[Rfam]
RNA sequence: GCCGAGAGAAGCUGAAGGGAGCUUUCUGGUGACAGUUCGAUUUUGAACUCUUACUGUCAUGGAGGCGCUCUCUUCAGAUGAUCUUUG
Numbered sequence: 001g002c003c004g005a006g007a008g009a010a011g012c013u014g015a016a017g018g019g020a021g022c023u024u025u026c027u028g029g030u031g032a033c034a035g036u037u038c039g040a041u042u043u044u045g046a047a048c049u050c051u052u053a054c055u056g057u058c059a060u061g062g063a064g065g066c067g068c069u070c071u072c073u074u075c076a077g078a079u080g081a082u083c084u085u086u087g
Stems, first nucleotide, its partner, number of pairs: 014075005020069003025063004031058003035054002
Rfam assigns this 87-nucleotide RNA from Caenorhabditis brenneri to the family "mir-46/mir-47/mir-281 microRNA precursor family". The literature on the family includes a 2001 paper in Science by Lau et al., "An abundant class of tiny RNAs with probable regulatory roles in Caenorhabditis elegans". The organism belongs to Caenorhabditis, within Eukaryota.